[Rfam]
RNA sequence: CGCCGGAACCCUCUACUCGGAUCGUCCGGCACGUUCCUGCCGGUGAAGGGAAGUGAUC
Numbered sequence: 001c002g003c004c005g006g007a008a009c010c011c012u013c014u015a016c017u018c019g020g021a022u023c024g025u026c027c028g029g030c031a032c033g034u035u036c037c038u039g040c041c042g043g044u045g046a047a048g049g050g051a052a053g054u055g056a057u058c
Base pairs, nucleotide, nucleotide: 009050010049011048012047014045015044026043027042028041029040030039031038
About this RNA:
The record is a 58-nucleotide sequence from Nocardia cyriacigeorgica, which matches "msiK RNA" in Rfam. The family's RNA type in Rfam is cis-regulatory element. The family has 120 seed sequences and 1,374 matches in Rfam 15.1. Lineage of the source: Bacteria > Actinomycetes > Mycobacteriales > Nocardia > Nocardia cyriacigeorgica. A search with the family's covariance model found it, with a score of 53 bits.